The record is a 76-nucleotide RNA sequence from Coptotermes formosanus, which matches "mir-67 microRNA precursor family" in Rfam. The base pairs follow the family's consensus structure, which was predicted with RNAalifold.

[Rfam]
RNA sequence: CGUCUUGGUGACUCACUCAACUUGGGUGUGAUGUCCUUGAGCCCAUCACAACCUCCUUGAGUGAGCGACUAGGGCG
Numbered sequence: 001c002g003u004c005u006u007g008g009u010g011a012c013u014c015a016c017u018c019a020a021c022u023u024g025g026g027u028g029u030g031a032u033g034u035c036c037u038u039g040a041g042c043c044c045a046u047c048a049c050a051a052c053c054u055c056c057u058u059g060a061g062u063g064a065g066c067g068a069c070u071a072g073g074g075c076g
Base pairs, nucleotide, nucleotide: 009067010066012065013064014063015062016061017060018059019058020057024053025052027050028049029048030047031046032045033044
NCBI's taxonomy places the organism under Eukaryota, Opisthokonta, Eumetazoa, Termitoidae, Coptotermes.